[Rfam]
RNA sequence: GCCCAUGUAGCUCAGGGGUAGAGCACUCCCUUGGUAAGGGAGAGGUCGGCAGUUCAAAUCUGCCUAUGGGCA
Numbered sequence: 001g002c003c004c005a006u007g008u009a010g011c012u013c014a015g016g017g018g019u020a021g022a023g024c025a026c027u028c029c030c031u032u033g034g035u036a037a038g039g040g041a042g043a044g045g046u047c048g049g050c051a052g053u054u055c056a057a058a059u060c061u062g063c064c065u066a067u068g069g070g071c072a
Base pairs, nucleotide, nucleotide: 001071002070003069004068005067006066007065010024011023012022013021026042027041028040029039030038048064049063050062051061052060
Shown here is a 72-nucleotide RNA sequence from Kingella potus, a member of the family "tRNA". The base pairs follow the family's consensus structure, which is taken from published work.